[Rfam]
The family of this 68-nucleotide RNA from Medicago truncatula is "MIR2629 microRNA precursor family".
RNA sequence: UGCCAAAGUUUUCCUCGAUAGUUAACUGCAGCCGGUUCCAUAAUUGGCAGUUAACUGCCGAGAACCAU
Numbered sequence: 001u002g003c004c005a006a007a008g009u010u011u012u013c014c015u016c017g018a019u020a021g022u023u024a025a026c027u028g029c030a031g032c033c034g035g036u037u038c039c040a041u042a043a044u045u046g047g048c049a050g051u052u053a054a055c056u057g058c059c060g061a062g063a064a065c066c067a068u
Base pairs, nucleotide, nucleotide: 012064015061016060017059019057020056021055022054023053024052025051026050027049028048029047
Its family is annotated with miRNA-mediated post-transcriptional gene silencing and RISC complex in the Gene Ontology.